This 105-nucleotide RNA sequence from Zhihengliuella flava belongs to the Rfam family "SAM riboswitch aptamer (S box leader)". From the family's description: The SAM riboswitch is found upstream of a number of genes which code for proteins involved in methionine or cysteine biosynthesis in Gram-positive bacteria. The SAM riboswitch acts at the level of transcription termination control. The organism belongs to Zhihengliuella, within Bacteria.
RNA sequence: ACACCAUCCCGAGCGGCCGAGAGAUCUGGCUUGACGACGCCGCAGCAACCACCGCAGGUGCCCCACGGCACCCGGCAUUGGUGCUAACGCCAGGACCGAUGGAGA
Numbered sequence: 001a002c003a004c005c006a007u008c009c010c011g012a013g014c015g016g017c018c019g020a021g022a023g024a025u026c027u028g029g030c031u032u033g034a035c036g037a038c039g040c041c042g043c044a045g046c047a048a049c050c051a052c053c054g055c056a057g058g059u060g061c062c063c064c065a066c067g068g069c070a071c072c073c074g075g076c077a078u079u080g081g082u083g084c085u086a087a088c089g090c091c092a093g094g095a096c097c098g099a100u101g102g103a104g105a
Stems, first nucleotide, its partner, number of pairs: 002104001004102005013043005021032003026093004044085004049081002052075003089097001